[Rfam]
RNA: Small nucleolar RNA Z43
Nucleotides: 100
Base pairs, nucleotide, nucleotide: 001100002099003098004097044060045059
Number, partner (000 for none) and nucleotide at each position: 001100g002099g003098a004097c005000g006000a007000g008000g009000a010000c011000g012000a013000a014000c015000a016000a017000a018000a019000u020000a021000u022000u023000g024000g025000u026000c027000u028000c029000g030000u031000u032000c033000g034000u035000c036000g037000u038000a039000a040000a041000g042000g043000u044060g045059u046000c047000u048000g049000u050000u051000a052000u053000g054000a055000u056000a057000c058000c059045a060044u061000g062000c063000c064000g065000a066000c067000u068000a069000u070000a071000c072000u073000g074000a075000u076000a077000u078000a079000u080000c081000a082000c083000c084000a085000c086000c087000c088000a089000u090000a091000a092000a093000c094000u095000g096000a097004g098003u099002c100001c